[Rfam]
RNA sequence: AUUCCGAAAAGGCAACCCUUUGCAUGUAUCUCCUAGGUUUCACAUGACAAAGGGACGCAAAGCUUGGGCCACACUUGGUAAAUCAAAGUAGCAGACCGGCUACCGAA
Numbered sequence: 001a002u003u004c005c006g007a008a009a010a011g012g013c014a015a016c017c018c019u020u021u022g023c024a025u026g027u028a029u030c031u032c033c034u035a036g037g038u039u040u041c042a043c044a045u046g047a048c049a050a051a052g053g054g055a056c057g058c059a060a061a062g063c064u065u066g067g068g069c070c071a072c073a074c075u076u077g078g079u080a081a082a083u084c085a086a087a088g089u090a091g092c093a094g095a096c097c098g099g100c101u102a103c104c105g106a107a
Stems, first nucleotide, its partner, number of pairs: 012058002017053006061101004066097002068092002075086004

Shown here is a 107-nucleotide RNA from Sporotomaculum syntrophicum, a member of the family "c-di-GMP-I riboswitch aptamer". Rfam describes the family as follows. GEMM was predicted in a large-scale screen for bacterial structured RNA regulatory elements. The match comes from Rfam's covariance-model search (42 bits).